This 129-nucleotide RNA sequence from Corynebacterium timonense belongs to the Rfam family "ALIL pseudoknot".

RNA sequence: AGCUUUUUUCGCGGCGGAGUGCGAGCGCCCACACACGUAGUCGUCCGGUUCAUCGACGACAACCGGGAGGAGUUCGGGGUCGAGCCGAUUAUUCGCGCCCUUUCAGCAACCAACGCGAAAAUCGCCCUG
Numbered sequence: 001a002g003c004u005u006u007u008u009u010c011g012c013g014g015c016g017g018a019g020u021g022c023g024a025g026c027g028c029c030c031a032c033a034c035a036c037g038u039a040g041u042c043g044u045c046c047g048g049u050u051c052a053u054c055g056a057c058g059a060c061a062a063c064c065g066g067g068a069g070g071a072g073u074u075c076g077g078g079g080u081c082g083a084g085c086c087g088a089u090u091a092u093u094c095g096c097g098c099c100c101u102u103u104c105a106g107c108a109a110c111c112a113a114c115g116c117g118a119a120a121a122u123c124g125c126c127c128u129g
Stems, first nucleotide, its partner, number of pairs: 013029004075129005086124002089121002092119006